Rfam assigns this 144-nucleotide RNA from Apium graveolens to the family "Small nucleolar RNA U19". By type it is an H/ACA-box small nucleolar RNA. The match comes from Rfam's covariance-model search (63 bits). Pairs were carried over by alignment from the consensus structure, which was predicted with WAR. The source organism's lineage runs through Eukaryota, Magnoliopsida, Pentapetalae, campanulids and Apium. Rfam links the family to the GO terms RNA processing and nucleolus.
RNA sequence: AAAUGACUUAGUUGGGAGGCAUAUAUUAAAACAAUAUAGAUCCUGGUAGUGUUUUAUUACCAGAUUCUCCUGUUUACUCAGGUCUCUUGAGGGGAUUACUUGCCCUUCUUCAAUCAAUCUUCCCCCAAGCAACCUUAGACAUUA
Numbered sequence: 001a002a003a004u005g006a007c008u009u010a011g012u013u014g015g016g017a018g019g020c021a022u023a024u025a026u027u028a029a030a031a032c033a034a035u036a037u038a039g040a041u042c043c044u045g046g047u048a049g050u051g052u053u054u055u056a057u058u059a060c061c062a063g064a065u066u067c068u069c070c071u072g073u074u075u076a077c078u079c080a081g082g083u084c085u086c087u088u089g090a091g092g093g094g095a096u097u098a099c100u101u102g103c104c105c106u107u108c109u110u111c112a113a114u115c116a117a118u119c120u121u122c123c124c125c126c127a128a129g130c131a132a133c134c135u136u137a138g139a140c141a142u143u144a
Stems, first nucleotide, its partner, number of pairs: 004021002007018003039066004049058001077138002080135004086129004091125005098118001